RNA sequence: UAUUCUCAUGUGGAAGCGGUUUUGAGUACGGACCCAGUACCAACCCACCCUCCCCCAACUCUAUGUACUUCGUACAUUACUGCCAGCCCCCAUGAAUAUUGUACA
Numbered sequence: 001u002a003u004u005c006u007c008a009u010g011u012g013g014a015a016g017c018g019g020u021u022u023u024g025a026g027u028a029c030g031g032a033c034c035c036a037g038u039a040c041c042a043a044c045c046c047a048c049c050c051u052c053c054c055c056c057a058a059c060u061c062u063a064u065g066u067a068c069u070u071c072g073u074a075c076a077u078u079a080c081u082g083c084c085a086g087c088c089c090c091c092a093u094g095a096a097u098a099u100u101g102u103a104c105a
Base pairs, nucleotide, nucleotide: 006095007094008093009092010091012088013087016083017082018081019080022037023036024035026033027032038057043051063077064076065075066074067073

The record is a 105-nucleotide RNA, which matches "Mitochondrial DNA control region secondary structure A" in Rfam. A reference for the family is Pereira et al. (2008), "Evidence for variable selective pressures at a large secondary structure of the human mitochondrial DNA control region", Mol Biol Evol. Pairs were carried over by alignment from the consensus structure, which is taken from published work. The sequence is in the family's curated seed alignment.